[Rfam]
RNA sequence: GCGGUUGAAAAUCGCGGCCGUUUCCCCCAUAUGGAUAGUGCCGGGUUCGCCCGGCUAUGGUGAUAAAUCGUGUCGUGCAAUAGGCGCAGCGGACCCGGGGGCAGUACCCGGCGGCUCCACCAAAAGCCCCGUCGAACGGGGUGUUCUGAUGGGGCCGAACUAGGAUCGACGUGUGUUGAAAAGCGGUGCCUUCACCCGGCCUGAGUACGCCGUAAAAAGGUUCAAAACCUACAAGUGCCAACGAUAACGAGGCUCUUGCUCUUGCUGCGUAAUUGAUGGCCUCACGGCCUGACAUUACCCAAAAAGAACGCGGUUGAACCCACCGGGCAACAGAAGGGAAUUCA
Numbered sequence: 001g002c003g004g005u006u007g008a009a010a011a012u013c014g015c016g017g018c019c020g021u022u023u024c025c026c027c028c029a030u031a032u033g034g035a036u037a038g039u040g041c042c043g044g045g046u047u048c049g050c051c052c053g054g055c056u057a058u059g060g061u062g063a064u065a066a067a068u069c070g071u072g073u074c075g076u077g078c079a080a081u082a083g084g085c086g087c088a089g090c091g092g093a094c095c096c097g098g099g100g101g102c103a104g105u106a107c108c109c110g111g112c113g114g115c116u117c118c119a120c121c122a123a124a125a126g127c128c129c130c131g132u133c134g135a136a137c138g139g140g141g142u143g144u145u146c147u148g149a150u151g152g153g154g155c156c157g158a159a160c161u162a163g164g165a166u167c168g169a170c171g172u173g174u175g176u177u178g179a180a181a182a183g184c185g186g187u188g189c190c191u192u193c194a195c196c197c198g199g200c201c202u203g204a205g206u207a208c209g210c211c212g213u214a215a216a217a218a219g220g221u222u223c224a225a226a227a228c229c230u231a232c233a234a235g236u237g238c239c240a241a242c243g244a245u246a247a248c249g250a251g252g253c254u255c256u257u258g259c260u261c262u263u264g265c266u267g268c269g270u271a272a273u274u275g276a277u278g279g280c281c282u283c284a285c286g287g288c289c290u291g292a293c294a295u296u297a298c299c300c301a302a303a304a305a306g307a308a309c310g311c312g313g314u315u316g317a318a319c320c321c322a323c324c325g326g327g328c329a330a331c332a333g334a335a336g337g338g339a340a341u342u343c344a
Base pairs, nucleotide, nucleotide: 040055041054042053043052044051059196060195061194062193063192070189071188072187073186074185075184076183085175086174087173089172090171091170095111096110097109098108099107112157113156114155115154116153117152118151197212198211199210200209202224203223204222206220311325312324313323314322316343317342318341321338
RNA: Alphaproteobacteria transfer-messenger RNA
Organism: Sphingobium ummariense